Overview
mir-3015 microRNA precursor family: a 57-nucleotide sequence from Acyrthosiphon pisum. Its family is annotated with RISC complex and miRNA-mediated post-transcriptional gene silencing in the Gene Ontology.
RNA sequence: GUUCUUACAAUGUCCGGUAAAGUGUCGGUUAACUUUAACCGGAGGUCGUAAGAACCA
Numbered sequence: 001g002u003u004c005u006u007a008c009a010a011u012g013u014c015c016g017g018u019a020a021a022g023u024g025u026c027g028g029u030u031a032a033c034u035u036u037a038a039c040c041g042g043a044g045g046u047c048g049u050a051a052g053a054a055c056c057a
Stems, first nucleotide, its partner, number of pairs: 001055008010046002013043006020036003024033002
Taxonomically the source falls in Acyrthosiphon (Eukaryota, Ecdysozoa, Hexapoda, Aphidinae).